[Rfam]
RNA: Purine riboswitch aptamer
Organism: Liquorilactobacillus capillatus
RNA sequence: AAUCUACAUAAGUGUUGUACUUAUAUAAUGUCAUAAUAUGGUUGACGAGUUUCUACCUAAGACCGAAAAUCUUGGACUAUAAGUAAAAAAAGCUGUAGU
Numbered sequence: 001a002a003u004c005u006a007c008a009u010a011a012g013u014g015u016u017g018u019a020c021u022u023a024u025a026u027a028a029u030g031u032c033a034u035a036a037u038a039u040g041g042u043u044g045a046c047g048a049g050u051u052u053c054u055a056c057c058u059a060a061g062a063c064c065g066a067a068a069a070u071c072u073u074g075g076a077c078u079a080u081a082a083g084u085a086a087a088a089a090a091a092g093c094u095g096u097a098g099u
Stems, first nucleotide, its partner, number of pairs: 018085008029047005057075006
Dot-bracket structure: .................((((((((...(((((.........))))).........((((((.......))))))..))))))))..............